A member of the RNA family "MIR397 microRNA precursor family" from Raphanus sativus, 105 nucleotides long. NCBI's taxonomy places the organism under Eukaryota, Tracheophyta, Gunneridae, malvids, Raphanus. The literature on the family includes a 2009 paper in BMC Genomics by Mica et al., "High throughput approaches reveal splicing of primary microRNA transcripts and tissue specific expression of mature microRNAs in Vitis vinifera". The base pairs follow the family's consensus structure, which was predicted with WAR. Gene Ontology terms of the family: RISC complex and miRNA-mediated post-transcriptional gene silencing. The match comes from Rfam's covariance-model search (83 bits).

RNA sequence: UGGAUGAACAUCAUUGAGUGCAGCGUUGAUGUAUCUUUCUUCUUUCUCCUAAUGUUGGAUGGGUAAAAAGAACUUACACCAGCGUUGCGCUCAAUCAUGCUUUUC
Dot-bracket structure: .....((.(((.((((((((((((((((.(((...........................................))).)))))))))))))))).))).))...